[Rfam]
RNA: Eukaryotic large subunit ribosomal RNA, nucleotides 893 to 1381
RNA sequence: CCCUCCGAAGUUUCCCUCAGGAUAGCUUGAACGCAACGGUUUUGUCAGGUAAAGCGAAUGAUUAGAGGCCUGUGGGCUGAAACAGCUUGCACCUAUUCUCAAACUUUAAAUGGGCAAGAGGCCCGGGAUGCUUGAGUGAUCCCGGGCGGCGAACGGCGCGUUCAAAGUGGGCCAUUUUUGGUAAGCAGAACUGGCGAUGCGGGAUGAACCGAACGCCGCGCUAAGGUACCCAAGUGUCCGCUCAUCAGAUACCACAAAAGGCGUUGGUACCUCCAGACAGCAGGACGGUGGCCAUGGAAGUCGGAACCCGCUAAGGAGUGUGUAACAACUCACCUGCCGAAGGUACUAGCCCUGAAAAUGGAUGGCGCUCAAGCGGACCACCGAUGCGCGGCCGCCGGCGCGAGCGCGAGGCGCCGGCGAGUAGGAGGGCGCGGGGCUCGCGGCGCAGCCUUGGGCGCGAGCCUGGGUGAAGCGGGCCCCGGUGCAGAU
Numbered sequence: 001c002c003c004u005c006c007g008a009a010g011u012u013u014c015c016c017u018c019a020g021g022a023u024a025g026c027u028u029g030a031a032c033g034c035a036a037c038g039g040u041u042u043u044g045u046c047a048g049g050u051a052a053a054g055c056g057a058a059u060g061a062u063u064a065g066a067g068g069c070c071u072g073u074g075g076g077c078u079g080a081a082a083c084a085g086c087u088u089g090c091a092c093c094u095a096u097u098c099u100c101a102a103a104c105u106u107u108a109a110a111u112g113g114g115c116a117a118g119a120g121g122c123c124c125g126g127g128a129u130g131c132u133u134g135a136g137u138g139a140u141c142c143c144g145g146g147c148g149g150c151g152a153a154c155g156g157c158g159c160g161u162u163c164a165a166a167g168u169g170g171g172c173c174a175u176u177u178u179u180g181g182u183a184a185g186c187a188g189a190a191c192u193g194g195c196g197a198u199g200c201g202g203g204a205u206g207a208a209c210c211g212a213a214c215g216c217c218g219c220g221c222u223a224a225g226g227u228a229c230c231c232a233a234g235u236g237u238c239c240g241c242u243c244a245u246c247a248g249a250u251a252c253c254a255c256a257a258a259a260g261g262c263g264u265u266g267g268u269a270c271c272u273c274c275a276g277a278c279a280g281c282a283g284g285a286c287g288g289u290g291g292c293c294a295u296g297g298a299a300g301u302c303g304g305a306a307c308c309c310g311c312u313a314a315g316g317a318g319u320g321u322g323u324a325a326c327a328a329c330u331c332a333c334c335u336g337c338c339g340a341a342g343g344u345a346c347u348a349g350c351c352c353u354g355a356a357a358a359u360g361g362a363u364g365g366c367g368c369u370c371a372a373g374c375g376g377a378c379c380a381c382c383g384a385u386g387c388g389c390g391g392c393c394g395c396c397g398g399c400g401c402g403a404g405c406g407c408g409a410g411g412c413g414c415c416g417g418c419g420a421g422u423a424g425g426a427g428g429g430c431g432c433g434g435g436g437c438u439c440g441c442g443g444c445g446c447a448g449c450c451u452u453g454g455g456c457g458c459g460a461g462c463c464u465g466g467g468u469g470a471a472g473c474g475g476g477c478c479c480c481g482g483u484g485c486a487g488a489u
Base pairs, nucleotide, nucleotide: 001429002428003427004426005425006424011024013022014021015020027165028164029163030162031161032160033159040119041118042117043116044115045114046113052107053105054104059101060100061099064096066094067093068092071091072090073089074088075087076086078084121147122146123145124144125143126142127141128140129139171195172194173193174192176190177189178188179187180186200211201210202209215392216391217390218389219388221386225382226381227380234379236378239375240374241373259353260352261351263350264349265348266347267346268345269344270343271342272341280337281336282335283334284333286310287309288308292304293303311315316331320329321328393419394418395417396416397415398414399413400412401411430484432481433480434479435478436477437476438475439474440473441472448468449467454463455462456461